The family of this 131-nucleotide RNA sequence from Grallaria varia is "Small nucleolar RNA SNORA24". Its family is annotated with nucleolus and RNA processing in the Gene Ontology. The family's consensus secondary structure was predicted with RNAfold. The family's RNA type in Rfam is H/ACA-box small nucleolar RNA. From the family's description: ACA24 is a member of the H/ACA class of snoRNA that guide the sites of modification of uridines to pseudouridines. The family has 5 seed sequences and 852 matches in Rfam 15.1. It scores 65 bits against the family's covariance model.

RNA sequence: AUCCAUGACUCCAUGGGGGCUGCCGCCUGUGGCCGACUCCCUUCCUAGGCAUGGAAGAGCAGGGCCUUGCUGUUUGGCAUAACUUGUACCUUCCUGUGGGUAUGAGUCGUUGACUGUAGCAAGUAACAAAC
Number, nucleotide and partner (000 for none) at each position: 001a000002u055003c054004c053005a052006u051007g050008a000009c000010u000011c000012c000013a000014u000015g041016g040017g039018g038019g000020c035021u000022g033023c032024c031025g000026c000027c000028u000029g000030u000031g024032g023033c022034c000035g020036a000037c000038u018039c017040c016041c015042u000043u000044c000045c000046u000047a000048g000049g000050c007051a006052u005053g004054g003055a002056a000057g000058a000059g000060c000061a000062g000063g000064g000065c000066c000067u000068u128069g127070c000071u125072g000073u000074u122075u121076g120077g117078c116079a115080u000081a000082a000083c106084u105085u104086g000087u000088a101089c100090c099091u098092u000093c000094c000095u000096g000097u000098g091099g090100g089101u088102a000103u000104g085105a084106g083107u000108c000109g000110u000111u000112g000113a000114c000115u079116g078117u077118a000119g000120c076121a075122a074123g000124u000125a071126a000127c069128a068129a000130a000131c000